[Rfam]
RNA: mir-156 microRNA precursor family
Organism: Solanum commersonii
RNA sequence: GUGACAGAAGAGAGUGAGCACGCAUGGUUCUUUCAUGGAUUAUUCCCCAUGUUUAAAAGCUCUGCGUGCUCACGCUCUAUCUGUCAC
Numbered sequence: 001g002u003g004a005c006a007g008a009a010g011a012g013a014g015u016g017a018g019c020a021c022g023c024a025u026g027g028u029u030c031u032u033u034c035a036u037g038g039a040u041u042a043u044u045c046c047c048c049a050u051g052u053u054u055a056a057a058a059g060c061u062c063u064g065c066g067u068g069c070u071c072a073c074g075c076u077c078u079a080u081c082u083g084u085c086a087c
Stems, first nucleotide, its partner, number of pairs: 001087008010077003014073008023064002